The record is a 145-nucleotide sequence from Bacillus thuringiensis, which matches "c-di-AMP riboswitch aptamer (ydaO/yuaA leader)" in Rfam. Pairs were carried over by alignment from the consensus structure. Rfam's curators put it in the seed alignment. This family represents a conserved RNA structure found upstream of the ydaO and yuaA genes in Bacillus subtilis and related genes in other bacteria. The ydaO/yuaA element is thought to act as a genetic 'off' switch for the ydaO and yuaA genes in its native state. It is believed that the element may be triggered during osmotic shock leading to activation of ydaO, a predicted amino acid transporter gene, and members of the yuaA-yubG operon which code for KtrA and KtrB K+ transporters. Its family is annotated with cyclic-di-AMP binding and regulation of gene expression in the Gene Ontology.
[Rfam]
RNA sequence: AACCUUAAAUCGCUGAGUUCCAGAAAUGGAGCGGGGGAACCAAUUUUGUGCAUCGUCACUUGGGUGAAUCUUUCAGUUUUGAAAGUAGGGCUACUCUUUAGGCCCGAAUCCGACAGCUAACCUCGUAAGCGUUUAGAGAGGAGGU
Numbered sequence: 001a002a003c004c005u006u007a008a009a010u011c012g013c014u015g016a017g018u019u020c021c022a023g024a025a026a027u028g029g030a031g032c033g034g035g036g037g038a039a040c041c042a043a044u045u046u047u048g049u050g051c052a053u054c055g056u057c058a059c060u061u062g063g064g065u066g067a068a069u070c071u072u073u074c075a076g077u078u079u080u081g082a083a084a085g086u087a088g089g090g091c092u093a094c095u096c097u098u099u100a101g102g103c104c105c106g107a108a109u110c111c112g113a114c115a116g117c118u119a120a121c122c123u124c125g126u127a128a129g130c131g132u133u134u135a136g137a138g139a140g141g142a143g144g145u
Base pairs, nucleotide, nucleotide: 011131012130013129014128019030020029021028031126032125033124034123035122036121042060062111063110064109070085071084072083073082088105089104090103091102